Rfam assigns this 400-nucleotide sequence from Muricoccus pecuniae to the family "Bacterial RNase P class A". Its family is annotated with tRNA processing, dimeric ribonuclease P complex and ribonuclease P activity in the Gene Ontology. The organism belongs to Muricoccus, within Bacteria.

[Rfam]
RNA sequence: CCAGACGGCCGGACGACCGCUGCCAGUCCCGAGAGGGGCGGUGGAGGAAAGUCCGGGCUCCAUGGGAAAACGGUGCCGGCUAACGGCCGGCGGGGGCGACCCCAGGGACAGUGCCACAGAGAAGAGACCGCCCGCGCCGCCGAGAGGCGCUGCGGGCAAGGGUGAAACGGUGGGGUAAGAGCCCACCGCGCCCCUGGCGACAGGGGCGGCACGGCAAACCCCACCGGGAGCAAGGCCGAAUAGGGAUGGCCGGAGAGAGCCCGCGAGGGCUCGUCGCCAGGGGCUUCCCGCCCCGCCAUCCGGGUUGGCCGCGAGAAGUCCCCGGCAACGGGGACUCCAGAGGAAUGGUCGUCCGGUCCGCAAGGGCUGACAGAACCCGGCUUACAGGCCGUCUGGCAAU
Numbered sequence: 001c002c003a004g005a006c007g008g009c010c011g012g013a014c015g016a017c018c019g020c021u022g023c024c025a026g027u028c029c030c031g032a033g034a035g036g037g038g039c040g041g042u043g044g045a046g047g048a049a050a051g052u053c054c055g056g057g058c059u060c061c062a063u064g065g066g067a068a069a070a071c072g073g074u075g076c077c078g079g080c081u082a083a084c085g086g087c088c089g090g091c092g093g094g095g096g097c098g099a100c101c102c103c104a105g106g107g108a109c110a111g112u113g114c115c116a117c118a119g120a121g122a123a124g125a126g127a128c129c130g131c132c133c134g135c136g137c138c139g140c141c142g143a144g145a146g147g148c149g150c151u152g153c154g155g156g157c158a159a160g161g162g163u164g165a166a167a168c169g170g171u172g173g174g175g176u177a178a179g180a181g182c183c184c185a186c187c188g189c190g191c192c193c194c195u196g197g198c199g200a201c202a203g204g205g206g207c208g209g210c211a212c213g214g215c216a217a218a219c220c221c222c223a224c225c226g227g228g229a230g231c232a233a234g235g236c237c238g239a240a241u242a243g244g245g246a247u248g249g250c251c252g253g254a255g256a257g258a259g260c261c262c263g264c265g266a267g268g269g270c271u272c273g274u275c276g277c278c279a280g281g282g283g284c285u286u287c288c289c290g291c292c293c294c295g296c297c298a299u300c301c302g303g304g305u306u307g308g309c310c311g312c313g314a315g316a317a318g319u320c321c322c323c324g325g326c327a328a329c330g331g332g333g334a335c336u337c338c339a340g341a342g343g344a345a346u347g348g349u350c351g352u353c354c355g356g357u358c359c360g361c362a363a364g365g366g367c368u369g370a371c372a373g374a375a376c377c378c379g380g381c382u383u384a385c386a387g388g389c390c391g392u393c394u395g396g397c398a399a400u
Stems, first nucleotide, its partner, number of pairs: 001396010011385001012353007020044005027037002049383003053380005058230004066289001069286001071226005076090005091105001092103004106221002111219002113215003128161002130157007138149004169187006188210001189208008234310004244301006280294005317336008
Record summary: About the family: Ribonuclease P (RNase P) is a ubiquitous endoribonuclease, found in archaea, bacteria and eukarya as well as chloroplasts and mitochondria.